[Rfam]
A member of the RNA family "UnaL2 LINE 3' element" from Triplophysa tibetana, 54 nucleotides long. The base pairs follow the family's consensus structure, which is taken from published work. The organism belongs to Triplophysa, within Eukaryota. The eel long interspersed element (LINE) UnaL2 and its partner short interspersed element (SINE) share a conserved 3' tail containing a stem-loop that is critical for their retrotransposition. Presumably, the first step of retrotransposition is the recognition of their 3' tails by UnaL2-encoded reverse transcriptase. By type it is a cis-regulatory element.
RNA sequence: UUUCCCCUACUUUGUAAGUCACUUUGGAUAAAAGCGUCUGCUAAAUGACUAAAU
Numbered sequence: 001u002u003u004c005c006c007c008u009a010c011u012u013u014g015u016a017a018g019u020c021a022c023u024u025u026g027g028a029u030a031a032a033a034g035c036g037u038c039u040g041c042u043a044a045a046u047g048a049c050u051a052a053a054u
Base pairs, nucleotide, nucleotide: 013043014041015040016039020036022034023033024032025031